RNA sequence: CAGCCACAGAAUAGCUUAUUCUAUGGCCAUCUGAAUUUACUAUCACGAUUCUACUGAUUUUACGAGACUGUGAAUACAUAUUUACGAUACAAAUGUGUUACCAUAACAAAUGCAGAGAUUUACUGCACUACCCUCAAGUGAUUUACUAUCAGAUGAUGGUAAAUAUCAUCACUAGUUAUGGUAACAUAUUUGUAUCGUAAAUAUAUAUCCACAGUCUCAUAAAAUCAGUAGAAUCAUGAUAGUAAAUUCAGGUGGCCAUAGAAUAAGCUAUUCUGUGGCUG
Numbered sequence: 001c002a003g004c005c006a007c008a009g010a011a012u013a014g015c016u017u018a019u020u021c022u023a024u025g026g027c028c029a030u031c032u033g034a035a036u037u038u039a040c041u042a043u044c045a046c047g048a049u050u051c052u053a054c055u056g057a058u059u060u061u062a063c064g065a066g067a068c069u070g071u072g073a074a075u076a077c078a079u080a081u082u083u084a085c086g087a088u089a090c091a092a093a094u095g096u097g098u099u100a101c102c103a104u105a106a107c108a109a110a111u112g113c114a115g116a117g118a119u120u121u122a123c124u125g126c127a128c129u130a131c132c133c134u135c136a137a138g139u140g141a142u143u144u145a146c147u148a149u150c151a152g153a154u155g156a157u158g159g160u161a162a163a164u165a166u167c168a169u170c171a172c173u174a175g176u177u178a179u180g181g182u183a184a185c186a187u188a189u190u191u192g193u194a195u196c197g198u199a200a201a202u203a204u205a206u207a208u209c210c211a212c213a214g215u216c217u218c219a220u221a222a223a224a225u226c227a228g229u230a231g232a233a234u235c236a237u238g239a240u241a242g243u244a245a246a247u248u249c250a251g252g253u254g255g256c257c258a259u260a261g262a263a264u265a266a267g268c269u270a271u272u273c274u275g276u277g278g279c280u281g
Base pairs, nucleotide, nucleotide: 001281002280003279004278005277006276007275008274009273010272011271012270013269014268015267016266017265018264019263020262021261022260023259024258025257026256027255028254029253030252031251032250033249037245038244039243040242041241042240043239044238045237047235050232051231052230053229054228055227056226057225058224059223060222061221064218065217066216068214069213070212072209073208081201082200083199084198085197093195094194095193096192097189098188099183100182101181102180103179104178105177106176107175
RNA: MIR6217 microRNA precursor family
Organism: Dichanthelium oligosanthes